Rfam assigns this 117-nucleotide sequence from Prunella fulvescens to the family "Small nucleolar RNA SNORA61". The source organism's lineage runs through Eukaryota, Sauria, Saurischia, Telluraves and Prunella. ACA61 is a member of the H/ACA class of snoRNA that guide the sites of modification of uridines to pseudouridines. The base pairs follow the family's consensus structure, which was predicted with PFOLD. It scores 75 bits against the family's covariance model.

[Rfam]
RNA sequence: UGCCUCCAAAUCCCUUUCCCAUCAGAUCUGAAUACCGAUCUUGUGGUCGAAAAAGGAGGAAGAGUAACAUUCAUGCUGGUCUUGGGCUCUCUGCAGGUGUGUCCUGUGCUGAGAGGG
Numbered sequence: 001u002g003c004c005u006c007c008a009a010a011u012c013c014c015u016u017u018c019c020c021a022u023c024a025g026a027u028c029u030g031a032a033u034a035c036c037g038a039u040c041u042u043g044u045g046g047u048c049g050a051a052a053a054a055g056g057a058g059g060a061a062g063a064g065u066a067a068c069a070u071u072c073a074u075g076c077u078g079g080u081c082u083u084g085g086g087c088u089c090u091c092u093g094c095a096g097g098u099g100u101g102u103c104c105u106g107u108g109c110u111g112a113g114a115g116g117g
Base pairs, nucleotide, nucleotide: 003059004058005057006056007055019046020045021044023043025040026039027038028037080117081116082115091111093109